[Rfam]
RNA sequence: AUGUAUUCUCAGGGCGGGGUGUAAGUCCCCACCGGUGGUUAUAGCCCACGAGCGCUUAGUUUUUUAAGGUAUAUUAUUAAAAACUAAGGUCAGCAGAUUUGGUGAAAUUCCAAGGCCGACAGUUAAAGUCUGGAUGAAAGAGAGUAGCU
Numbered sequence: 001a002u003g004u005a006u007u008c009u010c011a012g013g014g015c016g017g018g019g020u021g022u023a024a025g026u027c028c029c030c031a032c033c034g035g036u037g038g039u040u041a042u043a044g045c046c047c048a049c050g051a052g053c054g055c056u057u058a059g060u061u062u063u064u065u066a067a068g069g070u071a072u073a074u075u076a077u078u079a080a081a082a083a084c085u086a087a088g089g090u091c092a093g094c095a096g097a098u099u100u101g102g103u104g105a106a107a108u109u110c111c112a113a114g115g116c117c118g119a120c121a122g123u124u125a126a127a128g129u130c131u132g133g134a135u136g137a138a139a140g141a142g143a144g145u146a147g148c149u
Base pairs, nucleotide, nucleotide: 004146005145006144007143008142009141010140017029018028019027031129032128033118034117035049036048037047038046044116045115052094053093098114099113100112101111102110120132121131122130